Overview:
Rfam assigns this 53-nucleotide sequence from Phenylobacterium sp. Root1277 to the family "nhaA-I RNA". By type it is a riboswitch. Pairs were carried over by alignment from the consensus structure, which is taken from published work. The match comes from Rfam's covariance-model search (50 bits). Lineage of the source: Bacteria > Pseudomonadati > Alphaproteobacteria > Caulobacterales > Phenylobacterium.

RNA sequence: GGGUGCCCGGUCCUGUCGGCCGGUCAGGUUUAACGUUGGUCGGGCCGCCAGCG
Numbered sequence: 001g002g003g004u005g006c007c008c009g010g011u012c013c014u015g016u017c018g019g020c021c022g023g024u025c026a027g028g029u030u031u032a033a034c035g036u037u038g039g040u041c042g043g044g045c046c047g048c049c050a051g052c053g
Stems, first nucleotide, its partner, number of pairs: 005025001007023006034053007